The family of this 59-nucleotide RNA from Rhodoferax fermentans is "nhaA-I RNA".
RNA sequence: GGGUGUUUGCAUUGCGUGUUGUGAUGUAGCAGGUUUUUAGCGCUGGUCGGGCCGCCACG
Numbered sequence: 001g002g003g004u005g006u007u008u009g010c011a012u013u014g015c016g017u018g019u020u021g022u023g024a025u026g027u028a029g030c031a032g033g034u035u036u037u038u039a040g041c042g043c044u045g046g047u048c049g050g051g052c053c054g055c056c057a058c059g
Base pairs, nucleotide, nucleotide: 005030006029008028009027010026011025012024013023014022041059042058044057045056046055047054
About the family: Acidobacteria, Alphaproteobacteria, Betaproteobacteria and Gammaproteobacteria, Verrucomicrobia, cand. division NC10.
It scores 40 bits against the family's covariance model.